[Rfam]
RNA: SAM-III riboswitch aptamer (SMK box)
Organism: Granulicatella balaenopterae
RNA sequence: AAUAGCGACAAGAUAUUCCCGAUAGGAUUUACCUCCACCAAGAGAUGAAGAUGCCUUGUAACCGGAAUAGAAUUAGGGGGAAAUAAAAAAUG
Numbered sequence: 001a002a003u004a005g006c007g008a009c010a011a012g013a014u015a016u017u018c019c020c021g022a023u024a025g026g027a028u029u030u031a032c033c034u035c036c037a038c039c040a041a042g043a044g045a046u047g048a049a050g051a052u053g054c055c056u057u058g059u060a061a062c063c064g065g066a067a068u069a070g071a072a073u074u075a076g077g078g079g080g081a082a083a084u085a086a087a088a089a090a091u092g
Stems, first nucleotide, its partner, number of pairs: 016082005024056003028049004062077002